[Rfam]
RNA sequence: GCGCGGGCUUAGUUAAGCGGUUACUUCGCAUAAAAGAAUUUACUGUCACUAAAUACCCUUACUGCUCUGGACCGUUGGCGCCAUCCCGUGCUUUU
Numbered sequence: 001g002c003g004c005g006g007g008c009u010u011a012g013u014u015a016a017g018c019g020g021u022u023a024c025u026u027c028g029c030a031u032a033a034a035a036g037a038a039u040u041u042a043c044u045g046u047c048a049c050u051a052a053a054u055a056c057c058c059u060u061a062c063u064g065c066u067c068u069g070g071a072c073c074g075u076u077g078g079c080g081c082c083a084u085c086c087c088g089u090g091c092u093u094u095u
Base pairs, nucleotide, nucleotide: 002090003089004088005087006086007085012079013078014077015076017075018074019073020072026071027070